c-di-GMP-II-GAG riboswitch aptamer: a 90-nucleotide RNA sequence.
The base pairs follow the family's consensus structure, which is taken from published work.
Rfam links the family to the GO terms cyclic-di-GMP binding and regulation of gene expression.
The sequence is in the family's curated seed alignment.
[Rfam]
RNA sequence: CUCAAUACGGGAGGCUGUGAUCCGCCGGACGUACCACUGCGGCCACCGUAGUCCGUCGGGGAGCCACUGGUGAGACCGACCCGCGGACCG
Numbered sequence: 001c002u003c004a005a006u007a008c009g010g011g012a013g014g015c016u017g018u019g020a021u022c023c024g025c026c027g028g029a030c031g032u033a034c035c036a037c038u039g040c041g042g043c044c045a046c047c048g049u050a051g052u053c054c055g056u057c058g059g060g061g062a063g064c065c066a067c068u069g070g071u072g073a074g075a076c077c078g079a080c081c082c083g084c085g086g087a088c089c090g
Stems, first nucleotide, its partner, number of pairs: 001090001006085001008083004013065003022059003026055004041077002044072004